[Rfam]
RNA sequence: CUUCACAGUCCCUGCAUUGUACACACUGUGUGAAUCAGUUCUGCACACACAGCGCAUACAAUGUGGAUGCUGUUUAG
Numbered sequence: 001c002u003u004c005a006c007a008g009u010c011c012c013u014g015c016a017u018u019g020u021a022c023a024c025a026c027u028g029u030g031u032g033a034a035u036c037a038g039u040u041c042u043g044c045a046c047a048c049a050c051a052g053c054g055c056a057u058a059c060a061a062u063g064u065g066g067a068u069g070c071u072g073u074u075u076a077g
Base pairs, nucleotide, nucleotide: 012066013065015063016062017061018060019059020058021057024054026052027051028050029049030048031047
The record is a 77-nucleotide sequence from Anguilla anguilla, which matches "mir-460 microRNA precursor family" in Rfam. The family has 21 seed sequences and 1,029 matches in Rfam 15.1. The match comes from Rfam's covariance-model search (85 bits). The base pairs follow the family's consensus structure, which was predicted with RNAalifold. Taxonomically the source falls in Anguilla (Eukaryota, Chordata, Craniata, Actinopterygii).